[Rfam]
Nucleotides: 085
Stems, first nucleotide, its partner, number of pairs: 012037002017032006040079004045075003048070003055064003
Number, partner (000 for none) and nucleotide at each position: 001000u002000a003000c004000c005000g006000a007000u008000a009000a010000a011000g012037g013036c014000a015000a016000a017032c018031g019030c020029a021028g022027c023000g024000a025000a026000a027022g028021c029020u030019g031018c032017g033000g034000a035000c036013g037012c038000a039000a040079a041078g042077c043076c044000a045075u046074g047073g048070g049069c050068c051000u052000a053000a054000c055064c056063c057062c058000u059000g060000a061000a062057g063056g064055g065000u066000a067000c068050g069049g070048u071000a072000g073047c074046c075045a076043g077042g078041u079040u080000a081000c082000c083000g084000a085000a
The family of this 85-nucleotide sequence from Anaerocolumna chitinilytica is "c-di-GMP-I riboswitch aptamer". GEMM was predicted in a large-scale screen for bacterial structured RNA regulatory elements.